[Rfam]
RNA sequence: GGGCCAUUAGCUCAAUUGGCAGAGCAGGUGACUCUUAAUCACAAGGUUGGGGGUUCGACUCCCUCAUGGCCCA
Numbered sequence: 001g002g003g004c005c006a007u008u009a010g011c012u013c014a015a016u017u018g019g020c021a022g023a024g025c026a027g028g029u030g031a032c033u034c035u036u037a038a039u040c041a042c043a044a045g046g047u048u049g050g051g052g053g054u055u056c057g058a059c060u061c062c063c064u065c066a067u068g069g070c071c072c073a
Base pairs, nucleotide, nucleotide: 001072002071003070004069005068006067007066010025011024012023013022028042029041030040031039049065050064051063052062053061
A member of the RNA family "tRNA" from Syntrophothermus lipocalidus, 73 nucleotides long. The match comes from Rfam's covariance-model search (68 bits). Rfam's curators write: Transfer RNA (tRNA) molecules are approximately 80 nucleotides in length. The organism belongs to Syntrophothermus lipocalidus, within Bacteria.